Rfam assigns this 120-nucleotide RNA from Candidatus Brocadia sinica to the family "c-di-GMP-I riboswitch aptamer".
The match comes from Rfam's covariance-model search (58 bits).
Lineage of the source: Bacteria > Pseudomonadati > Candidatus Brocadiia > Candidatus Brocadiales > Candidatus Brocadia sinica.
[Rfam]
RNA sequence: UAACGAAAAGGGCAAAUCCUGAGUGAUCAGGGGACGCAAAGUAACAGGGUCUUCAACAAAGUUGAGAGUAGAGAGUUAAGGGUUUAGUGUUAUAUUUUGGAAGACAGCCUUACUGCCGAA
Numbered sequence: 001u002a003a004c005g006a007a008a009a010g011g012g013c014a015a016a017u018c019c020u021g022a023g024u025g026a027u028c029a030g031g032g033g034a035c036g037c038a039a040a041g042u043a044a045c046a047g048g049g050u051c052u053u054c055a056a057c058a059a060a061g062u063u064g065a066g067a068g069u070a071g072a073g074a075g076u077u078a079a080g081g082g083u084u085u086a087g088u089g090u091u092a093u094a095u096u097u098u099g100g101a102a103g104a105c106a107g108c109c110u111u112a113c114u115g116c117c118g119a120a
Base pairs, nucleotide, nucleotide: 012037013036017032018031019030020029021028022027040114041113042112043111046110047109048108049105050104051103057099058098059097060096061095062094
Dot-bracket structure: ...........((...((((((....))))))...))..((((..((((((.....((((((...............................))))))...)))..)))))))......